[Rfam]
RNA sequence: GGGCGCGGACGGCCGCGUUUCCUCAAGUCUCGAGCGGCGGGGACGACCCCG
Numbered sequence: 001g002g003g004c005g006c007g008g009a010c011g012g013c014c015g016c017g018u019u020u021c022c023u024c025a026a027g028u029c030u031c032g033a034g035c036g037g038c039g040g041g042g043a044c045g046a047c048c049c050c051g
Stems, first nucleotide, its partner, number of pairs: 001020008038051005
Rfam assigns this 51-nucleotide RNA from Xanthobacter dioxanivorans to the family "Guanidine-II riboswitch aptamer (mini-ykkC)".
Lineage of the source: Bacteria > Pseudomonadati > Pseudomonadota > Alphaproteobacteria > Xanthobacter.